[Rfam]
mir-8834 microRNA precursor family: a 105-nucleotide sequence from Canis lupus. Pairs were carried over by alignment from the consensus structure, which was predicted with RNAalifold. Its family is annotated with RISC complex and miRNA-mediated post-transcriptional gene silencing in the Gene Ontology.
RNA sequence: AGGAGGAACAACCGCAGUGGCGGGGCCAGCUUUAGAGCCCUGGCUUCAGCUCCCGCAGUAACUACAGAGAUCUCCAUCCGAGGGGCCUGGAUGUUCUGAGGGUGG
Number, nucleotide and partner (000 for none) at each position: 001a000002g097003g096004a095005g094006g000007a092008a000009c089010a088011a000012c085013c084014g000015c000016a000017g000018u000019g078020g077021c000022g075023g074024g073025g072026c000027c000028a071029g000030c069031u068032u067033u066034a000035g000036a063037g000038c000039c000040c058041u057042g056043g000044c000045u000046u000047c000048a000049g000050c000051u000052c000053c000054c000055g000056c042057a041058g040059u000060a000061a000062c000063u036064a000065c000066a033067g032068a031069g030070a000071u028072c025073u024074c023075c022076a000077u020078c019079c000080g000081a000082g000083g000084g013085g012086c000087c000088u010089g009090g000091a000092u007093g000094u005095u004096c003097u002098g000099a000100g000101g000102g000103u000104g000105g000